[Rfam]
RNA sequence: UUGGAUAUACGAUAAUCUCACUCCAACUUAAACUCUCUCACUGACUAUUUGAUAAUAAUAGGUCAGAUAUUCUU
Numbered sequence: 001u002u003g004g005a006u007a008u009a010c011g012a013u014a015a016u017c018u019c020a021c022u023c024c025a026a027c028u029u030a031a032a033c034u035c036u037c038u039c040a041c042u043g044a045c046u047a048u049u050u051g052a053u054a055a056u057a058a059u060a061g062g063u064c065a066g067a068u069a070u071u072c073u074u
Stems, first nucleotide, its partner, number of pairs: 003072005
RNA: Small nucleolar RNA SNORD81
Organism: Pan troglodytes